The family of this 71-nucleotide RNA sequence from bacterium HR10 is "Fluoride riboswitch aptamer (crcB RNA motif)". The match comes from Rfam's covariance-model search (52 bits).
RNA sequence: CCUUGCCUUGGCGAUGGAGUCCGCCGGGAACCGCCUCGAAGGGAUUCGGGGCUGAUGACUCCUACUUGGGC
Numbered sequence: 001c002c003u004u005g006c007c008u009u010g011g012c013g014a015u016g017g018a019g020u021c022c023g024c025c026g027g028g029a030a031c032c033g034c035c036u037c038g039a040a041g042g043g044a045u046u047c048g049g050g051g052c053u054g055a056u057g058a059c060u061c062c063u064a065c066u067u068g069g070g071c
Stems, first nucleotide, its partner, number of pairs: 010025004016062006033052008